The record is a 100-nucleotide RNA sequence from Paenibacillus spiritus, which matches "Purine riboswitch aptamer" in Rfam.
RNA sequence: GAAAAAACGGCAAGAAUUGUUCGUAUAUCCCCGGCAAUAUGGGACGGGGGUCUCUACAGGGAACCUUAAAUUCCCGGCUACGGACAGGGUGCUUUCGCAU
Numbered sequence: 001g002a003a004a005a006a007a008c009g010g011c012a013a014g015a016a017u018u019g020u021u022c023g024u025a026u027a028u029c030c031c032c033g034g035c036a037a038u039a040u041g042g043g044a045c046g047g048g049g050g051u052c053u054c055u056a057c058a059g060g061g062a063a064c065c066u067u068a069a070a071u072u073c074c075c076g077g078c079u080a081c082g083g084a085c086a087g088g089g090u091g092c093u094u095u096c097g098c099a100u
Stems, first nucleotide, its partner, number of pairs: 018086008029049005035043001059075005
Annotation:
The family's consensus secondary structure is taken from published work.